This 97-nucleotide RNA sequence from Vitreoscilla sp. C1 belongs to the Rfam family "Glycine riboswitch aptamer".

[Rfam]
RNA sequence: CGGCGUUUUGCAGGAGAAGUCCGAGAAAUAGAUUGGCUCGGCUACCGAAGGCGCAUAGACCCUUUAAUCGCUCAGGUGGAAGGACUGUAAAACCCUU
Numbered sequence: 001c002g003g004c005g006u007u008u009u010g011c012a013g014g015a016g017a018a019g020u021c022c023g024a025g026a027a028a029u030a031g032a033u034u035g036g037c038u039c040g041g042c043u044a045c046c047g048a049a050g051g052c053g054c055a056u057a058g059a060c061c062c063u064u065u066a067a068u069c070g071c072u073c074a075g076g077u078g079g080a081a082g083g084a085c086u087g088u089a090a091a092a093c094c095c096u097u
Stems, first nucleotide, its partner, number of pairs: 006092008021041005044077003047073002051071003057064002

Taxonomically the source falls in Vitreoscilla (Bacteria, Pseudomonadati, Betaproteobacteria, Neisseriaceae).